[Rfam]
Nucleotides: 089
Base pairs, nucleotide, nucleotide: 002084003083004082005081006080007079013073014072015071016070019068020067021066027065028064029063
Number, partner (000 for none) and nucleotide at each position: 001000g002084c003083g004082u005081c006080a007079g008000c009000u010000u011000u012000a013073g014072c015071u016070c017000a018000c019068u020067g021066g022000u023000u024000a025000c026000u027065u028064c029063a030000c031000a032000g033000u034000g035000u036000c037000a038000a039000c040000u041000u042000a043000a044000u045000u046000g047000u048000a049000a050000g051000u052000u053000u054000a055000a056000a057000c058000c059000u060000g061000u062000u063029u064028g065027a066021c067020c068019g069000u070016g071015g072014g073013c074000g075000c076000u077000g078000c079007c080006u081005g082004g083003c084002g085000c086000u087000u088000u089000u